[Rfam]
RNA: mir-399 microRNA precursor family
Organism: Salvia splendens
RNA sequence: GGAUGCAUUACUGGGUAAUUACUUCUUUGGCAGUAGGCAUAUGAUGCUAACUUUGCAGUCAGCACACUGCCAAAGGAAAUUUGCCCCGCGAUACAUAC
Number, nucleotide and partner (000 for none) at each position: 001g000002g000003a000004u000005g094006c000007a092008u091009u090010a000011c088012u000013g086014g085015g084016u083017a082018a081019u000020u000021a000022c000023u077024u076025c075026u000027u000028u072029g071030g070031c069032a068033g067034u066035a000036g000037g000038c000039a000040u000041a000042u000043g000044a000045u000046g000047c000048u000049a000050a000051c000052u000053u000054u000055g000056c000057a000058g000059u000060c000061a000062g000063c000064a000065c000066a034067c033068u032069g031070c030071c029072a028073a000074a000075g025076g024077a023078a000079a000080u000081u018082u017083g016084c015085c014086c013087c000088g011089c000090g009091a008092u007093a000094c005095a000096u000097a000098c000